[Rfam]
RNA sequence: AGGGUGUGUGACUGGUUGACCAGAGGGGCAAGCACUCUGUUCACCCUGUGGGCCACCUAGUCACCAACCCU
Numbered sequence: 001a002g003g004g005u006g007u008g009u010g011a012c013u014g015g016u017u018g019a020c021c022a023g024a025g026g027g028g029c030a031a032g033c034a035c036u037c038u039g040u041u042c043a044c045c046c047u048g049u050g051g052g053c054c055a056c057c058u059a060g061u062c063a064c065c066a067a068c069c070c071u
Stems, first nucleotide, its partner, number of pairs: 001071005008064008017055002020051003024047004032040002
RNA: mir-134 microRNA precursor family